[Rfam]
RNA sequence: CAUCCAAAUAUCGUCUCUGCCAAUAUAGUUCCGGAUAGAUGGCCCGGAUGUUUCUACCGCAGCGCCGCAAAGAAAGCUGUGACUAUUGGAGAAAACGCUGAAGCG
Numbered sequence: 001c002a003u004c005c006a007a008a009u010a011u012c013g014u015c016u017c018u019g020c021c022a023a024u025a026u027a028g029u030u031c032c033g034g035a036u037a038g039a040u041g042g043c044c045c046g047g048a049u050g051u052u053u054c055u056a057c058c059g060c061a062g063c064g065c066c067g068c069a070a071a072g073a074a075a076g077c078u079g080u081g082a083c084u085a086u087u088g089g090a091g092a093a094a095a096c097g098c099u100g101a102a103g104c105g
Stems, first nucleotide, its partner, number of pairs: 018091001020089006030048005058081006
RNA: Purine riboswitch aptamer
Organism: Firmicutes bacterium CAG:170